Rfam assigns this 204-nucleotide sequence from Heterocephalus glaber to the family "Small nucleolar RNA SNORA73 family". A reference for the family is Enright et al. (1996), "5'ETS rRNA processing facilitated by four small RNAs: U14, E3, U17, and U3", RNA. Gene Ontology terms of the family: nucleolus and RNA processing. Rfam 15.1 lists 2,326 matches to the family in 660 species. Rfam's curators write: U17 (SNORA73A and SNORA73B) also known as E1 belongs to the H/ACA class of small nucleolar RNAs (snoRNAs). Vertebrate U17 is intron-encoded and ranges in length from 200-230 nucleotides, longer than most snoRNAs. It is one of the most abundant snoRNAs in human cells and is essential for the cleavage of pre-rRNA within the 5' external transcribed spacer (ETS). This cleavage leads to the formation of 18S rRNA. Regions of the U17 RNA are complementary to rRNA and act as guides for RNA/RNA interactions, although these regions do not seem to be well conserved between organisms. It scores 176 bits against the family's covariance model. The family's consensus secondary structure is taken from published work. It is annotated as an H/ACA-box small nucleolar RNA.
[Rfam]
RNA sequence: CCUACAUGUAUAUCCUGGGAGGUCACUCUCCUGGGGCUCUGUCCAGGUGGCACAGGGGAGCAUAGGGCUCUGCCCCAUGAUGUACAGUCUCUUUCCACAACUUUGGAGAAGAAGCUGGGCCUUGUGUCUGCACUUGCAUAUUCCUACAACUUCUCACAGUCCUUUGGGCAAUAACUGAGGAGAUAAACCAUGCAGGAAACAGUC
Numbered sequence: 001c002c003u004a005c006a007u008g009u010a011u012a013u014c015c016u017g018g019g020a021g022g023u024c025a026c027u028c029u030c031c032u033g034g035g036g037c038u039c040u041g042u043c044c045a046g047g048u049g050g051c052a053c054a055g056g057g058g059a060g061c062a063u064a065g066g067g068c069u070c071u072g073c074c075c076c077a078u079g080a081u082g083u084a085c086a087g088u089c090u091c092u093u094u095c096c097a098c099a100a101c102u103u104u105g106g107a108g109a110a111g112a113a114g115c116u117g118g119g120c121c122u123u124g125u126g127u128c129u130g131c132a133c134u135u136g137c138a139u140a141u142u143c144c145u146a147c148a149a150c151u152u153c154u155c156a157c158a159g160u161c162c163u164u165u166g167g168g169c170a171a172u173a174a175c176u177g178a179g180g181a182g183a184u185a186a187a188c189c190a191u192g193c194a195g196g197a198a199a200c201a202g203u204c
Base pairs, nucleotide, nucleotide: 001106002105004103007100008044010042011041012040014036015035016034018029019028020027021026047098048097049096050095056091057090058089059088060085062083063082064081065078133196134195135194136193137192138191139190150182151181152180153179154178155177159169160168161167162166